Rfam assigns this 33-nucleotide RNA sequence from Loxodonta africana to the family "Iron response element I". Rfam links the family to the GO term response to iron ion. Rfam 15.1 lists 6,829 matches to the family in 599 species. The base pairs follow the family's consensus structure, which is taken from published work. The match comes from Rfam's covariance-model search (41 bits). The literature on the family includes a 1999 paper in Insect Biochem Mol Biol by Huang et al., "An atypical iron-responsive element (IRE) within crayfish ferritin mRNA and an iron regulatory protein 1 (IRP1)-like protein from crayfish hepatopancreas". Rfam classes the family as a cis-regulatory element.

RNA sequence: UCUCCUGCUUCAACAGUGCUUGAACAGAACUGG
Dot-bracket structure: (((.(.(.((((((...).)))))).).)..))
Numbered sequence: 001u002c003u004c005c006u007g008c009u010u011c012a013a014c015a016g017u018g019c020u021u022g023a024a025c026a027g028a029a030c031u032g033g
Stems, first nucleotide, its partner, number of pairs: 001033002003029001005027001007025001009024005014018001